[Rfam]
RNA: Small nucleolar RNA SNORD23
Organism: Phyllostomus discolor
RNA sequence: UGCCCAGUGAUGACACCCAUCCUUGCUCCCCGUGCCCCCAGGGGCUGUGGGCGACACCAUGGCUGCCCCGGGCUAGGCUGGUUGGGCCAAGGCCUGGGGGCUGAGGGCA
Numbered sequence: 001u002g003c004c005c006a007g008u009g010a011u012g013a014c015a016c017c018c019a020u021c022c023u024u025g026c027u028c029c030c031c032g033u034g035c036c037c038c039c040a041g042g043g044g045c046u047g048u049g050g051g052c053g054a055c056a057c058c059a060u061g062g063c064u065g066c067c068c069c070g071g072g073c074u075a076g077g078c079u080g081g082u083u084g085g086g087c088c089a090a091g092g093c094c095u096g097g098g099g100g101c102u103g104a105g106g107g108c109a
Stems, first nucleotide, its partner, number of pairs: 001109005